[Rfam]
RNA: mir-8364 microRNA precursor family
Nucleotides: 061
Stems, first nucleotide, its partner, number of pairs: 001059007010050001014046004019041004
Number, partner (000 for none) and nucleotide at each position: 001059u002058c003057u004056u005055c006054a007053u008000u009000u010050c011000a012000c013000g014046u015045g016044c017043u018000c019041u020040c021039u022038c023000a024000c025000a026000g027000g028000u029000c030000a031000g032000a033000g034000a035000g036000g037000c038022g039021a040020g041019a042000g043017a044016g045015c046014a047000a048000a049000c050010g051000u052000a053007a054006u055005g056004a057003g058002g059001a060000g061000a